[Rfam]
RNA sequence: UUCUUAUCCAGAGAGACGGAGGGACUGGCCCUAUGAUGUCUCGGCAGCGGACUCGUCCAAACGAGUGCUGUGCCACAUCCAGCAAGCCACCGGCUUGAAAGAUAAGAA
Numbered sequence: 001u002u003c004u005u006a007u008c009c010a011g012a013g014a015g016a017c018g019g020a021g022g023g024a025c026u027g028g029c030c031c032u033a034u035g036a037u038g039u040c041u042c043g044g045c046a047g048c049g050g051a052c053u054c055g056u057c058c059a060a061a062c063g064a065g066u067g068c069u070g071u072g073c074c075a076c077a078u079c080c081a082g083c084a085a086g087c088c089a090c091c092g093g094c095u096u097g098a099a100a101g102a103u104a105a106g107a108a
Stems, first nucleotide, its partner, number of pairs: 001108008013042005021031003025082004043074004048070002051066004078100001083097006